[Rfam]
RNA: Rhizobiales sRNA Atu_At1
RNA sequence: ACGCGCCCGGUGGCAACCGGCCGCAACAGGGAAUGAUGGACGUAGCUAUUUUGCCGGUUUCUCGCUGCGACACCAACGCAUUGGUACGCGCUGACAUCUAACCCGUUCCGGGC
Numbered sequence: 001a002c003g004c005g006c007c008c009g010g011u012g013g014c015a016a017c018c019g020g021c022c023g024c025a026a027c028a029g030g031g032a033a034u035g036a037u038g039g040a041c042g043u044a045g046c047u048a049u050u051u052u053g054c055c056g057g058u059u060u061c062u063c064g065c066u067g068c069g070a071c072a073c074c075a076a077c078g079c080a081u082u083g084g085u086a087c088g089c090g091c092u093g094a095c096a097u098c099u100a101a102c103c104c105g106u107u108c109c110g111g112g113c
Base pairs, nucleotide, nucleotide: 006112007111008110009109011023012022013021014020025107026106027105029104030103031102035098036097037096038095041069042068043067044066045065046064072085073084074083